[Rfam]
RNA sequence: GCUAGAUUUAGUGCCCUGCCUUGUCUUAAUUAAAGUUGUCUCCUGUAAGGAUAUUACUGUUCUACUUGGUGGCAGAUAUUU
Numbered sequence: 001g002c003u004a005g006a007u008u009u010a011g012u013g014c015c016c017u018g019c020c021u022u023g024u025c026u027u028a029a030u031u032a033a034a035g036u037u038g039u040c041u042c043c044u045g046u047a048a049g050g051a052u053a054u055u056a057c058u059g060u061u062c063u064a065c066u067u068g069g070u071g072g073c074a075g076a077u078a079u080u081u
Base pairs, nucleotide, nucleotide: 012074013073014072015071018070019069020068023065024064034058035057036056039053041051042050043049044048
Notes
A member of the RNA family "Small nucleolar RNA snoR110" from Raphanus sativus, 81 nucleotides long. Rfam links the family to the GO terms nucleolus and RNA processing. The match comes from Rfam's covariance-model search (56 bits). It is annotated as an H/ACA-box small nucleolar RNA. Pairs were carried over by alignment from the consensus structure, which was predicted with WAR. NCBI's taxonomy places the organism under Eukaryota, Viridiplantae, Pentapetalae, Brassicales, Raphanus.